[Rfam]
RNA sequence: UGGCGCCCAACAUGGGGCUCGAGAACGGGGAUUUCAGUGAGGGACACUGUUUGUGAGGCCGGCACGGAAAGAGAAAGAGGAUAAGUCAACGCAGGAGCCUGCUGCGUUUUCUACACCUUGGUAAGUGAACAGCGAUCAUGGGACAAGAAAUGAGUCAGCAUGAAGUGUUUAUUGAGGGCUUAGGAAAAGCCUUAAAGGCACGAGGAGUAAAGGUUAAAAUUAAGCAAUUGUGUCAGUAUUUUGACUUCAUUAAACAAGUCUGCCCUU
Numbered sequence: 001u002g003g004c005g006c007c008c009a010a011c012a013u014g015g016g017g018c019u020c021g022a023g024a025a026c027g028g029g030g031a032u033u034u035c036a037g038u039g040a041g042g043g044a045c046a047c048u049g050u051u052u053g054u055g056a057g058g059c060c061g062g063c064a065c066g067g068a069a070a071g072a073g074a075a076a077g078a079g080g081a082u083a084a085g086u087c088a089a090c091g092c093a094g095g096a097g098c099c100u101g102c103u104g105c106g107u108u109u110u111c112u113a114c115a116c117c118u119u120g121g122u123a124a125g126u127g128a129a130c131a132g133c134g135a136u137c138a139u140g141g142g143a144c145a146a147g148a149a150a151u152g153a154g155u156c157a158g159c160a161u162g163a164a165g166u167g168u169u170u171a172u173u174g175a176g177g178g179c180u181u182a183g184g185a186a187a188a189g190c191c192u193u194a195a196a197g198g199c200a201c202g203a204g205g206a207g208u209a210a211a212g213g214u215u216a217a218a219a220u221u222a223a224g225c226a227a228u229u230g231u232g233u234c235a236g237u238a239u240u241u242u243g244a245c246u247u248c249a250u251u252a253a254a255c256a257a258g259u260c261u262g263c264c265c266u267u
Stems, first nucleotide, its partner, number of pairs: 006030003013024001035049004083119003086115001088112001090106005126145002130142001133140002151194003154190002201243005207237002211229002214226001252267002
Rfam assigns this 267-nucleotide RNA from Chinchilla lanigera to the family "Mason-Pfizer monkey virus packaging signal". On this family, see Mustafa et al., Virus Res 2004: "Mutational analysis of the predicted secondary RNA structure of the Mason-Pfizer monkey virus packaging signal". The base pairs follow the family's consensus structure, which was predicted with PFOLD. The family has 9 seed sequences and 2,921 matches in Rfam 15.1. Rfam describes the family as follows. This family represents a group of sequences that are related to the Mason-Pfizer monkey virus (MPMV) packaging signal. The packaging signal is located in the 5' UTR and is required for specific RNA encapsidation.